Background:
The record is an 86-nucleotide RNA sequence from Microlunatus endophyticus, which matches "Fluoride riboswitch aptamer (crcB RNA motif)" in Rfam. Gene Ontology terms of the family: response to fluoride and positive regulation of gene expression. It scores 44 bits against the family's covariance model.
[Rfam]
RNA sequence: UUGAUCGUGGGCGAUGGGGUUCGCCCGGCAGGACCCAAAAAGAGGUCAGCUGCCGAACCGCAGUCGCUGAUAACUCCUACCUGACC
Number, nucleotide and partner (000 for none) at each position: 001u000002u000003g000004a000005u000006c000007g000008u000009g000010g025011g024012c023013g022014a000015u000016g077017g076018g075019g074020u073021u072022c013023g012024c011025c010026c000027g000028g000029c000030a000031g000032g000033a000034c000035c000036c000037a000038a000039a000040a000041a000042g000043a000044g000045g000046u000047c000048a000049g000050c000051u000052g000053c000054c000055g000056a000057a000058c000059c000060g067061c066062a000063g000064u000065c000066g061067c060068u000069g000070a000071u000072a021073a020074c019075u018076c017077c016078u000079a000080c000081c000082u000083g000084a000085c000086c000